[Rfam]
Iron response element I: a 35-nucleotide RNA sequence from Microtus ochrogaster. It is annotated as a cis-regulatory element. A search with the family's covariance model found it, with a score of 43 bits.

RNA sequence: CUGUGUCUUGCUUCAGCAGUGCUUGAGCGGAACAG
Numbered sequence: 001c002u003g004u005g006u007c008u009u010g011c012u013u014c015a016g017c018a019g020u021g022c023u024u025g026a027g028c029g030g031a032a033c034a035g
Stems, first nucleotide, its partner, number of pairs: 001035004006031003010028001012027005017021001
Rfam 15.1 lists 6,829 matches to the family in 599 species. Its family is annotated with response to iron ion in the Gene Ontology.